[Rfam]
RNA: c-di-AMP riboswitch aptamer (ydaO/yuaA leader)
Organism: Desulforamulus aquiferis
RNA sequence: UAAAAAUUAGCGCUGAAUUCAUUUGAAGCGGGGGAACCACUUUUUUGGGGUGAAUCCAUAUUUGGUAGGGUUAAGCUUCAACCCGAAUCCGUCAGCUAACCUCGUAAGCGUAGAAGUGCUGUUCC
Number, nucleotide and partner (000 for none) at each position: 001u000002a000003a000004a000005a000006a000007u000008u000009a000010g000011c110012g109013c108014u107015g000016a000017a000018u027019u026020c025021a000022u000023u000024u000025g020026a019027a018028g105029c104030g103031g102032g101033g100034g000035a000036a000037c000038c047039a046040c000041u000042u000043u000044u000045u000046u039047g038048g090049g089050g088051u000052g000053a000054a000055u000056c065057c064058a063059u000060a000061u000062u000063u058064g057065g056066u000067a000068g084069g083070g082071u081072u000073a000074a000075g000076c000077u000078u000079c000080a000081a071082c070083c069084c068085g000086a000087a000088u050089c049090c048091g000092u000093c000094a000095g000096c000097u000098a000099a000100c033101c032102u031103c030104g029105u028106a000107a014108g013109c012110g011111u000112a000113g000114a000115a000116g000117u000118g000119c000120u000121g000122u000123u000124c000125c000